A member of the RNA family "MIR1120/MIR1122 microRNA precursor family" from Aegilops tauschii, 87 nucleotides long. Pairs were carried over by alignment from the consensus structure, which was predicted with RNAalifold. A reference for the family is Yao et al. (2007), "Cloning and characterization of microRNAs from wheat (Triticum aestivum L.)", Genome Biol. Taxonomically the source falls in Aegilops tauschii (Eukaryota, Spermatophyta, Liliopsida, Poales).
RNA sequence: GUACUCCCUCCGUCCCAUAAUAUAAGAACGAUUUUGGCACUACACUAGUGUAAAAAACGUUCUUAUAUUGUGGGACAGAGGUAGUAG
Numbered sequence: 001g002u003a004c005u006c007c008c009u010c011c012g013u014c015c016c017a018u019a020a021u022a023u024a025a026g027a028a029c030g031a032u033u034u035u036g037g038c039a040c041u042a043c044a045c046u047a048g049u050g051u052a053a054a055a056a057a058c059g060u061u062c063u064u065a066u067a068u069u070g071u072g073g074g075a076c077a078g079a080g081g082u083a084g085u086a087g
Stems, first nucleotide, its partner, number of pairs: 003085003007081004013075005019069012032056004037051005